[Rfam]
RNA sequence: AUAUUAUUACAGGUGAUAGGCUUAAAAGCCUUGAUACCAAGCACUUUAGGAGUUUUCCUAGAGUGUUUUUUUUGUUUAU
Numbered sequence: 001a002u003a004u005u006a007u008u009a010c011a012g013g014u015g016a017u018a019g020g021c022u023u024a025a026a027a028g029c030c031u032u033g034a035u036a037c038c039a040a041g042c043a044c045u046u047u048a049g050g051a052g053u054u055u056u057c058c059u060a061g062a063g064u065g066u067u068u069u070u071u072u073u074g075u076u077u078a079u
Base pairs, nucleotide, nucleotide: 018079020077031074034071039068040067041066042065043064044063045062048059049058050057051056

Rfam assigns this 79-nucleotide RNA from Streptococcus zalophi to the family "Streptococcus sRNA SpF01". Lineage of the source: Bacteria > Bacillati > Bacillota > Bacilli > Streptococcus. It scores 67 bits against the family's covariance model. Rfam classes the family as a small RNA.